[Rfam]
RNA sequence: UCCCGGGGUCAGCCGAACCGACCGACGGCAGGAGCGGGGGAACCAGGUAAGCCGCCGUCCGCAGCCACGCUGCGGGCGGCUUGGGGUGAAGUCGCGCCGCGACCAGGCAUCUCCUGCCCGAACCCGACAGCUCACCUCGCAGGCGCAGGAGAGGACAU
Numbered sequence: 001u002c003c004c005g006g007g008g009u010c011a012g013c014c015g016a017a018c019c020g021a022c023c024g025a026c027g028g029c030a031g032g033a034g035c036g037g038g039g040g041a042a043c044c045a046g047g048u049a050a051g052c053c054g055c056c057g058u059c060c061g062c063a064g065c066c067a068c069g070c071u072g073c074g075g076g077c078g079g080c081u082u083g084g085g086g087u088g089a090a091g092u093c094g095c096g097c098c099g100c101g102a103c104c105a106g107g108c109a110u111c112u113c114c115u116g117c118c119c120g121a122a123c124c125c126g127a128c129a130g131c132u133c134a135c136c137u138c139g140c141a142g143g144c145g146c147a148g149g150a151g152a153g154g155a156c157a158u
Stems, first nucleotide, its partner, number of pairs: 012144003019032001034140006044083005084125003092102004106118003